[Rfam]
RNA sequence: AAACAGCCCCCUAUAUAUUGGAUAUUUGGCAGUUUUGGCCUCCAAGACCACUUUUGACUUAGUCUUCGCUGACAUGGCACCCACAUCCCUUAAGUGAGGUGCCACGUGUCGACCAUUGUGGGUGUCACGUCAGCGAAGACUAAGUCAAAAGUGUCAUUCGGGCCAAAACUGCCAAAGAUCUAAUACAUAGAUGACUGUUU
Numbered sequence: 001a002a003a004c005a006g007c008c009c010c011c012u013a014u015a016u017a018u019u020g021g022a023u024a025u026u027u028g029g030c031a032g033u034u035u036u037g038g039c040c041u042c043c044a045a046g047a048c049c050a051c052u053u054u055u056g057a058c059u060u061a062g063u064c065u066u067c068g069c070u071g072a073c074a075u076g077g078c079a080c081c082c083a084c085a086u087c088c089c090u091u092a093a094g095u096g097a098g099g100u101g102c103c104a105c106g107u108g109u110c111g112a113c114c115a116u117u118g119u120g121g122g123u124g125u126c127a128c129g130u131c132a133g134c135g136a137a138g139a140c141u142a143a144g145u146c147a148a149a150a151g152u153g154u155c156a157u158u159c160g161g162g163c164c165a166a167a168a169c170u171g172c173c174a175a176a177g178a179u180c181u182a183a184u185a186c187a188u189a190g191a192u193g194a195c196u197g198u199u200u
Base pairs, nucleotide, nucleotide: 001200002199004197005196006195008193012189013188014187016185017184018183019182020181021180022179023178025176026175027174028173029172030171031170032169033168034167035166036165037164038163039162040161042160044158045157072130073129075127076126077125078124079123080122081121082120083119084118085117